Rfam assigns this 72-nucleotide RNA sequence from Penicilliopsis zonata to the family "tRNA".
[Rfam]
RNA sequence: GCGCGUGUGGCCAAGUGGUACGGCGUCUGUCUCGUAAACAGAAGAUCGCGGGUUCGAUUCCCGUCAUGCGCA
Number, nucleotide and partner (000 for none) at each position: 001g071002c070003g069004c068005g067006u066007g065008u000009g000010g024011c023012c022013a000014a000015g000016u000017g000018g000019u000020a000021c000022g012023g011024c010025g000026u042027c041028u040029g039030u038031c000032u000033c000034g000035u000036a000037a000038a030039c029040a028041g027042a026043a000044g000045a000046u000047c000048g064049c063050g062051g061052g060053u000054u000055c000056g000057a000058u000059u000060c052061c051062c050063g049064u048065c007066a006067u005068g004069c003070g002071c001072a000

The match comes from Rfam's covariance-model search (69 bits). From the family's description: Transfer RNA (tRNA) molecules are approximately 80 nucleotides in length. By type it is a transfer RNA.